[Rfam]
RNA sequence: UAAAAGGGCUUCUGUCAUGUUUGGCACAGGGAGAGUGGGGAAAUCCAUUUUUCUUGCGGAAUCGCAAUCAAGAGAUUUCGGAAGCAUAAUUUUUAUAACAGGGGCUGCUAGAGAUCACUUGUCCUGGCGUCCCG
Numbered sequence: 001u002a003a004a005a006g007g008g009c010u011u012c013u014g015u016c017a018u019g020u021u022u023g024g025c026a027c028a029g030g031g032a033g034a035g036u037g038g039g040g041a042a043a044u045c046c047a048u049u050u051u052u053c054u055u056g057c058g059g060a061a062u063c064g065c066a067a068u069c070a071a072g073a074g075a076u077u078u079c080g081g082a083a084g085c086a087u088a089a090u091u092u093u094u095a096u097a098a099c100a101g102g103g104g105c106u107g108c109u110a111g112a113g114a115u116c117a118c119u120u121g122u123c124c125u126g127g128c129g130u131c132c133c134g
Stems, first nucleotide, its partner, number of pairs: 008085005013026005027056012057080007102132004107128005113123003
Shown here is a 134-nucleotide RNA from Sphaeramia orbicularis, a member of the family "U11 spliceosomal RNA". A reference for the family is Marz et al. (2008), "Evolution of spliceosomal snRNA genes in metazoan animals", J Mol Evol. Lineage of the source: Eukaryota > Eumetazoa > Osteoglossocephalai > Acanthomorphata > Sphaeramia. The base pairs follow the family's consensus structure, which is taken from published work.